[Rfam]
A member of the RNA family "ArcZ RNA" from Pantoea sp. Eser, 100 nucleotides long.
It scores 68 bits against the family's covariance model.
For this family Rfam cites "Novel small RNA-encoding genes in the intergenic regions of Escherichia coli" (Argaman et al., Curr Biol, 2001).
Rfam links the family to the GO terms regulation of translation and protein binding.
Pairs were carried over by alignment from the consensus structure, which was predicted with PFOLD.
Rfam describes the family as follows. This RNA was discovered in E. coli during a large scale screen.
RNA sequence: GAGUUAACCAAUACCACGCGGCUGCAUUUAUUACUCAAAGCAUAGCAGCCGCAACUUUUUCCUUGGUGUUGGCGCAGUAUUCGCGCACCCCGGCCUCGGC
Numbered sequence: 001g002a003g004u005u006a007a008c009c010a011a012u013a014c015c016a017c018g019c020g021g022c023u024g025c026a027u028u029u030a031u032u033a034c035u036c037a038a039a040g041c042a043u044a045g046c047a048g049c050c051g052c053a054a055c056u057u058u059u060u061c062c063u064u065g066g067u068g069u070u071g072g073c074g075c076a077g078u079a080u081u082c083g084c085g086c087a088c089c090c091c092g093g094c095c096u097c098g099g100c
Base pairs, nucleotide, nucleotide: 018052019051020050021049022048023047024046025045065089066088067087072086073085074084075083
Dot-bracket structure: .................((((((((...................))))))))............(((....((((.......)))))))...........